Background: TPP riboswitch aptamer (THI element): a 97-nucleotide RNA sequence from Lysobacter sp. N42. The match comes from Rfam's covariance-model search (72 bits).
[Rfam]
RNA sequence: AAGUUACCAAAGGGGUGCCGUAAGGCUGAGAUGCGAGAGCGAACUCUUUGUACCUGAUCCGGUUAAUACUGGCGUAGGGAUUGGUAGAAACAAUAUA
Number, nucleotide and partner (000 for none) at each position: 001a000002a000003g000004u000005u000006a085007c084008c083009a082010a081011a047012g046013g045014g044015g000016u041017g026018c025019c024020g000021u000022a000023a000024g019025g018026c017027u000028g000029a000030g000031a000032u000033g040034c039035g000036a000037g000038a000039g034040c033041g016042a000043a000044c014045u013046c012047u011048u000049u000050g000051u000052a000053c078054c077055u076056g075057a000058u000059c072060c071061g070062g069063u000064u000065a000066a000067u000068a000069c062070u061071g060072g059073c000074g000075u056076a055077g054078g053079g000080a000081u010082u009083g008084g007085u006086a000087g000088a000089a000090a000091c000092a000093a000094u000095a000096u000097a000